[Rfam]
U7 small nuclear RNA: a 63-nucleotide RNA sequence from Saimiri boliviensis. The base pairs follow the family's consensus structure, which was predicted with PFOLD. On this family, see Marz et al., Genomics Proteomics Bioinformatics 2007: "U7 snRNAs: a computational survey". The match comes from Rfam's covariance-model search (42 bits). The organism belongs to Saimiri boliviensis, within Eukaryota.
RNA sequence: AACUGGCACACCCUCUUUUAGAAUUUGUUUAGCAGGUUUUCUGGCUUUUACCAGAAAACUUUU
Numbered sequence: 001a002a003c004u005g006g007c008a009c010a011c012c013c014u015c016u017u018u019u020a021g022a023a024u025u026u027g028u029u030u031a032g033c034a035g036g037u038u039u040u041c042u043g044g045c046u047u048u049u050a051c052c053a054g055a056a057a058a059c060u061u062u063u
Base pairs, nucleotide, nucleotide: 035060036059037058038057039056040055041054042053043052044051